The family of this 115-nucleotide sequence from Pseudomonas knackmussii is "Pseudomon-groES RNA".
A search with the family's covariance model found it, with a score of 84 bits.
By type it is a cis-regulatory element.
RNA sequence: GUAGCAGGCACCGCAAGGUCCCUGUCGUUCAGACAGGCUGUCUCUCGCGACUCGCCAGGCGGGCCGCAAACCGGCCAAGCCGGCCUCAAUAAAAUUCGCCGGGCACAGCACCGGC
Numbered sequence: 001g002u003a004g005c006a007g008g009c010a011c012c013g014c015a016a017g018g019u020c021c022c023u024g025u026c027g028u029u030c031a032g033a034c035a036g037g038c039u040g041u042c043u044c045u046c047g048c049g050a051c052u053c054g055c056c057a058g059g060c061g062g063g064c065c066g067c068a069a070a071c072c073g074g075c076c077a078a079g080c081c082g083g084c085c086u087c088a089a090u091a092a093a094a095u096u097c098g099c100c101g102g103g104c105a106c107a108g109c110a111c112c113g114g115c
Base pairs, nucleotide, nucleotide: 010019011018012017021037022036023035024034025033026032047067048066049065051063052062053061054060071083072082073081074080098115099114100113101112102111